[Rfam]
RNA: MIR168 microRNA precursor family
RNA sequence: UUACCGGCGGUCUCUAAUUCGCUUGGUGCAGGUCGGGAACUGGUUCGCUGUGCUGCUGAAACUCUUUUUAAAGUGGAUUUAGAUUUGAGCGAAAUGGAUCCCGCCUUGCAUCAACUGAAUCGGAGACCGCGGUGAAG
Numbered sequence: 001u002u003a004c005c006g007g008c009g010g011u012c013u014c015u016a017a018u019u020c021g022c023u024u025g026g027u028g029c030a031g032g033u034c035g036g037g038a039a040c041u042g043g044u045u046c047g048c049u050g051u052g053c054u055g056c057u058g059a060a061a062c063u064c065u066u067u068u069u070a071a072a073g074u075g076g077a078u079u080u081a082g083a084u085u086u087g088a089g090c091g092a093a094a095u096g097g098a099u100c101c102c103g104c105c106u107u108g109c110a111u112c113a114a115c116u117g118a119a120u121c122g123g124a125g126a127c128c129g130c131g132g133u134g135a136a137g
Base pairs, nucleotide, nucleotide: 013124014123017120018119019118020117023114024113025112026111027110028109029108030107031106032105034103035102036101037100038099040097041096